Background: A member of the RNA family "U5 spliceosomal RNA" from Channa argus, 114 nucleotides long. A reference for the family is Zwieb (1997), "The uRNA database", Nucleic Acids Res. The family's consensus secondary structure is taken from published work. The family's RNA type in Rfam is spliceosomal small nuclear RNA. Rfam describes the family as follows. U5 RNA is a component of both types of known spliceosome. The precise function of this molecule is unknown, though it is known that the 5' loop is required for splice site selection and p220 binding, and that both the 3' stem-loop and the Sm site are important for Sm protein binding and cap methylation. The family has 180 seed sequences and 28,527 matches in Rfam 15.1.
[Rfam]
RNA sequence: UACUCUGGUUUCUCUCAUCACGCACAGUCUUUCGCCUUUUACUAAACACUUCGUGGAGAAGAAGAAUACCAGAGGUAAAUUCAUUUUUGGCAGGCUUUGCCUUCUGGCAGAGCC
Numbered sequence: 001u002a003c004u005c006u007g008g009u010u011u012c013u014c015u016c017a018u019c020a021c022g023c024a025c026a027g028u029c030u031u032u033c034g035c036c037u038u039u040u041a042c043u044a045a046a047c048a049c050u051u052c053g054u055g056g057a058g059a060a061g062a063a064g065a066a067u068a069c070c071a072g073a074g075g076u077a078a079a080u081u082c083a084u085u086u087u088u089g090g091c092a093g094g095c096u097u098u099g100c101c102u103u104c105u106g107g108c109a110g111a112g113c114c
Stems, first nucleotide, its partner, number of pairs: 003074004009064005015056003026050003030046003094113006